The family of this 143-nucleotide RNA from Kumtagia ephedrae is "Alphaproteobacterial sRNA BjrC1505". It is annotated as a small RNA. Pairs were carried over by alignment from the consensus structure.
RNA sequence: CCGACGCGUUAAGCGUCCAUUAAGCUUUACAGCCGUUUAUUGGGGGCAUCCAGUUAUCUGGAUUCUUACCGAGUGGUUGGAGCCACUUCGUUUGACGCCUCCCUGUUAAACUCUCGAGAGCCGCUUUCCGCGGCUCUUUUUUU
Numbered sequence: 001c002c003g004a005c006g007c008g009u010u011a012a013g014c015g016u017c018c019a020u021u022a023a024g025c026u027u028u029a030c031a032g033c034c035g036u037u038u039a040u041u042g043g044g045g046g047c048a049u050c051c052a053g054u055u056a057u058c059u060g061g062a063u064u065c066u067u068a069c070c071g072a073g074u075g076g077u078u079g080g081a082g083c084c085a086c087u088u089c090g091u092u093u094g095a096c097g098c099c100u101c102c103c104u105g106u107u108a109a110a111c112u113c114u115c116g117a118g119a120g121c122c123g124c125u126u127u128c129c130g131c132g133g134c135u136c137u138u139u140u141u142u143u
Stems, first nucleotide, its partner, number of pairs: 001044002004041001005015002024033003048063004071088006094107004116138009